[Rfam]
RNA: 6S / SsrS RNA
RNA sequence: CCGAUCCUGAUGUGUACGUCAUCCAACAAUCGUUUUGACCGAACAUUUUGAACUACGGGAGCUUGAAGUUUCUGUAAGGCAUGCAAGCCUUGUUUCACUUACUUAGAGGACGCAUAAAUUACAGAACAAAGCACCCACUUGCCAAGAGCGGGGUUCAAAACAUUGGACUGUGACGGCACGAUUGGGAUUGGC
Numbered sequence: 001c002c003g004a005u006c007c008u009g010a011u012g013u014g015u016a017c018g019u020c021a022u023c024c025a026a027c028a029a030u031c032g033u034u035u036u037g038a039c040c041g042a043a044c045a046u047u048u049u050g051a052a053c054u055a056c057g058g059g060a061g062c063u064u065g066a067a068g069u070u071u072c073u074g075u076a077a078g079g080c081a082u083g084c085a086a087g088c089c090u091u092g093u094u095u096c097a098c099u100u101a102c103u104u105a106g107a108g109g110a111c112g113c114a115u116a117a118a119u120u121a122c123a124g125a126a127c128a129a130a131g132c133a134c135c136c137a138c139u140u141g142c143c144a145a146g147a148g149c150g151g152g153g154u155u156c157a158a159a160a161c162a163u164u165g166g167a168c169u170g171u172g173a174c175g176g177c178a179c180g181a182u183u184g185g186g187a188u189u190g191g192c
Stems, first nucleotide, its partner, number of pairs: 002190010012179004017175003032161007039153002057136003061132004071125007083113002088109004